[Rfam]
RNA sequence: GGGGGUAGAUGGGUGCUGGUGUGCCCCCCGGUCUUCAAAACCGGUGACGGUGGUGAAUAGCUGCCCAGGUGGGUUCGAUUCCCACAUACCCUC
Numbered sequence: 001g002g003g004g005g006u007a008g009a010u011g012g013g014u015g016c017u018g019g020u021g022u023g024c025c026c027c028c029c030g031g032u033c034u035u036c037a038a039a040a041c042c043g044g045u046g047a048c049g050g051u052g053g054u055g056a057a058u059a060g061c062u063g064c065c066c067a068g069g070u071g072g073g074u075u076c077g078a079u080u081c082c083c084a085c086a087u088a089c090c091c092u093c
Stems, first nucleotide, its partner, number of pairs: 001093007008085001011026006028044005049065003070084004

Rfam assigns this 93-nucleotide RNA sequence from bacterium 1XD42-8 to the family "Selenocysteine transfer RNA".
The match comes from Rfam's covariance-model search (69 bits).
On this family, see Mizutani and Goto, FEBS Lett 2000: "Eukaryotic selenocysteine tRNA has the 9/4 secondary structure".